RNA sequence: AUCUUAUCCAGAGAGGUGGAGGGACUGGCCCUAUGAAACCCGGCAACCAGUAUAUUUAUAUACAAUGGUGCUAAAUCCUGCGGCGAAAGCUGAGAGAUGAGUA
Numbered sequence: 001a002u003c004u005u006a007u008c009c010a011g012a013g014a015g016g017u018g019g020a021g022g023g024a025c026u027g028g029c030c031c032u033a034u035g036a037a038a039c040c041c042g043g044c045a046a047c048c049a050g051u052a053u054a055u056u057u058a059u060a061u062a063c064a065a066u067g068g069u070g071c072u073a074a075a076u077c078c079u080g081c082g083g084c085g086a087a088a089g090c091u092g093a094g095a096g097a098u099g100a101g102u103a
Stems, first nucleotide, its partner, number of pairs: 003101006013041001015040003021031003025080001027078002042072004047068002050063003076095001081092004
The family of this 103-nucleotide RNA from Clostridioides difficile is "SAM riboswitch aptamer (S box leader)". The base pairs follow the family's consensus structure, which is taken from published work. Gene Ontology term of the family: regulation of gene expression. Lineage of the source: Bacteria > Bacillati > Peptostreptococcales > Peptostreptococcaceae > Clostridioides difficile. Rfam's curators write: The SAM riboswitch is found upstream of a number of genes which code for proteins involved in methionine or cysteine biosynthesis in Gram-positive bacteria.